[Rfam]
RNA: skipping-rope RNA
RNA sequence: AGAUAUUGAGGUCGGAAAUGGCUCCCAGCACUCCCGCAGGGGAGUUUGAGAUGCAGGAUACGCCGUUCUGCUGAUGUCA
Numbered sequence: 001a002g003a004u005a006u007u008g009a010g011g012u013c014g015g016a017a018a019u020g021g022c023u024c025c026c027a028g029c030a031c032u033c034c035c036g037c038a039g040g041g042g043a044g045u046u047u048g049a050g051a052u053g054c055a056g057g058a059u060a061c062g063c064c065g066u067u068c069u070g071c072u073g074a075u076g077u078c079a
Stems, first nucleotide, its partner, number of pairs: 002078007011029002014026002019065004031048001032042004053071005